[Rfam]
Description:
A member of the RNA family "Small nucleolar RNA SNORA17" from Rattus norvegicus, 131 nucleotides long. Pairs were carried over by alignment from the consensus structure, which was predicted with RNAalifold. Its family is annotated with RNA processing and nucleolus in the Gene Ontology. Lineage of the source: Eukaryota > Euteleostomi > Dipnotetrapodomorpha > Mammalia > Rattus. The match comes from Rfam's covariance-model search (96 bits). The family is grouped with related families in Rfam's "SNORA17 clan". Rfam 15.1 lists 5,784 matches to the family in 673 species. Rfam classes the family as an H/ACA-box small nucleolar RNA.

RNA sequence: CCUGCCCCUAGAAGCAUUGCAGGAGUGGUUGCUGUGUCACAUGUGCAUUAGUAGGUAUCAGAGAGGAGAGAGGCAAUGUCUACAUUCAGUGUUCAGACUAUGAAUACCUGAAUGGUUAGAAGUCUAAUACU
Numbered sequence: 001c002c003u004g005c006c007c008c009u010a011g012a013a014g015c016a017u018u019g020c021a022g023g024a025g026u027g028g029u030u031g032c033u034g035u036g037u038c039a040c041a042u043g044u045g046c047a048u049u050a051g052u053a054g055g056u057a058u059c060a061g062a063g064a065g066g067a068g069a070g071a072g073g074c075a076a077u078g079u080c081u082a083c084a085u086u087c088a089g090u091g092u093u094c095a096g097a098c099u100a101u102g103a104a105u106a107c108c109u110g111a112a113u114g115g116u117u118a119g120a121a122g123u124c125u126a127a128u129a130c131u
Stems, first nucleotide, its partner, number of pairs: 002061003007055004013049002019046003025040005068128001071125004077119001083114002086111004090106005